[Rfam]
RNA sequence: AUGGAUCUUUGUUGGCAAAAAUCAAUUCAUGGUUCUUAAAAGAAGAAUGGAGAAAUUGUGUGAAAGGGUCCUCACAAUGACCCUUCACACUCUCCACCUUCAACAGUUUGCAUAAGCUUAACCAUUGAAUUUCUCUGAUCAGUAAUCAGAAGGAGAAUAUCGACAAUCAUAUGAAGCUAGUUAGUUAAGAAGAUUAAUUAGCACGCAUGUUUAGAUUUACAGUGAGUUUGACAGAUCAAGGUGUCACAAUGAUUUCAUCAAACUUACUGUGAUUCCAAGUAUGUGUUAGUUCUCCAUAGGAAGAGAAACUUUGGCUAUAGCUUGGUAAACCGGCAAGUCACAAAAAGGCGAUGGACCGUAUUAGAGGUCCU
Numbered sequence: 001a002u003g004g005a006u007c008u009u010u011g012u013u014g015g016c017a018a019a020a021a022u023c024a025a026u027u028c029a030u031g032g033u034u035c036u037u038a039a040a041a042g043a044a045g046a047a048u049g050g051a052g053a054a055a056u057u058g059u060g061u062g063a064a065a066g067g068g069u070c071c072u073c074a075c076a077a078u079g080a081c082c083c084u085u086c087a088c089a090c091u092c093u094c095c096a097c098c099u100u101c102a103a104c105a106g107u108u109u110g111c112a113u114a115a116g117c118u119u120a121a122c123c124a125u126u127g128a129a130u131u132u133c134u135c136u137g138a139u140c141a142g143u144a145a146u147c148a149g150a151a152g153g154a155g156a157a158u159a160u161c162g163a164c165a166a167u168c169a170u171a172u173g174a175a176g177c178u179a180g181u182u183a184g185u186u187a188a189g190a191a192g193a194u195u196a197a198u199u200a201g202c203a204c205g206c207a208u209g210u211u212u213a214g215a216u217u218u219a220c221a222g223u224g225a226g227u228u229u230g231a232c233a234g235a236u237c238a239a240g241g242u243g244u245c246a247c248a249a250u251g252a253u254u255u256c257a258u259c260a261a262a263c264u265u266a267c268u269g270u271g272a273u274u275c276c277a278a279g280u281a282u283g284u285g286u287u288a289g290u291u292c293u294c295c296a297u298a299g300g301a302a303g304a305g306a307a308a309c310u311u312u313g314g315c316u317a318u319a320g321c322u323u324g325g326u327a328a329a330c331c332g333g334c335a336a337g338u339c340a341c342a343a344a345a346a347g348g349c350g351a352u353g354g355a356c357c358g359u360a361u362u363a364g365a366g367g368u369c370c371u
Stems, first nucleotide, its partner, number of pairs: 059089003106330006125319001354369004
Early nodulin 40: a 371-nucleotide RNA from Trifolium subterraneum. Its family is annotated with nodulation in the Gene Ontology. NCBI's taxonomy places the organism under Eukaryota, Streptophytina, eudicotyledons, rosids, Trifolium. A search with the family's covariance model found it, with a score of 123 bits.